[Rfam]
A member of the RNA family "c-di-AMP riboswitch aptamer (ydaO/yuaA leader)" from Frankia nepalensis, 174 nucleotides long.
Lineage of the source: Bacteria > Bacillati > Actinomycetes > Frankiales > Frankia.
RNA sequence: CUUGGCCUGACGCUCCCUCCGACAUGCCGGGCAGGAGCGGGGGACCCACAGGUUCCUCUGGACGAGGCCGUUAGUCCGGCCGGGUCCUCGGGGUGAAGCCGCCUAAGGGCGGCCGGGCGGCGGUGAGGCUGUCCGAACCCGACAGCUGACCUCGCAGGCGUCAGGGAAGGACGC
Number, nucleotide and partner (000 for none) at each position: 001c000002u000003u000004g000005g000006c000007c000008u000009g000010a000011c160012g159013c158014u157015c000016c000017c000018u036019c035020c034021g000022a000023c000024a000025u000026g000027c000028c000029g000030g000031g000032c000033a000034g020035g019036a018037g155038c154039g153040g152041g151042g150043g000044a000045c000046c000047c090048a000049c000050a000051g000052g000053u000054u000055c000056c000057u000058c000059u000060g000061g000062a000063c000064g000065a000066g000067g000068c000069c000070g000071u000072u000073a000074g000075u000076c000077c000078g000079g000080c000081c000082g000083g000084g000085u000086c000087c000088u000089c000090g047091g140092g139093g138094u000095g000096a000097a000098g000099c112100c111101g110102c109103c000104u000105a000106a000107g000108g000109g102110c101111g100112g099113c000114c000115g134116g133117g132118c131119g130120g129121c128122g000123g000124u000125g000126a000127g000128g121129c120130u119131g118132u117133c116134c115135g000136a000137a000138c093139c092140c091141g000142a000143c000144a000145g000146c000147u000148g000149a000150c042151c041152u040153c039154g038155c037156a000157g014158g013159c012160g011161u000162c000163a000164g000165g000166g000167a000168a000169g000170g000171a000172c000173g000174c000